The family of this 76-nucleotide RNA sequence from Acipenser ruthenus is "mir-196 microRNA precursor family". On this family, see Lagos-Quintana et al., RNA 2003: "New microRNAs from mouse and human".
RNA sequence: UGUGUGAUUUAGGUAGUCUCAUGUUGUUGGGGCUCCAUUUUCUUUCCCUACAACACGGAACUGUCUCAAUUGCUCC
Numbered sequence: 001u002g003u004g005u006g007a008u009u010u011a012g013g014u015a016g017u018c019u020c021a022u023g024u025u026g027u028u029g030g031g032g033c034u035c036c037a038u039u040u041u042c043u044u045u046c047c048c049u050a051c052a053a054c055a056c057g058g059a060a061c062u063g064u065c066u067c068a069a070u071u072g073c074u075c076c
Stems, first nucleotide, its partner, number of pairs: 004073006011066007019058001022055006029048003
Source information:
NCBI's taxonomy places the organism under Eukaryota, Acipenseroidei, Acipenseridae, Acipenserinae, Acipenser.